[Rfam]
RNA sequence: GGCUCAAAAUUGAAAUACAGUAGGUUAGUAGGGUCAGCUAAUACUACUAAUCUACUCUACUUCAAAUUUGGGCCA
Numbered sequence: 001g002g003c004u005c006a007a008a009a010u011u012g013a014a015a016u017a018c019a020g021u022a023g024g025u026u027a028g029u030a031g032g033g034u035c036a037g038c039u040a041a042u043a044c045u046a047c048u049a050a051u052c053u054a055c056u057c058u059a060c061u062u063c064a065a066a067u068u069u070g071g072g073c074c075a
Stems, first nucleotide, its partner, number of pairs: 001074008011064004016059002019056005025050006033042002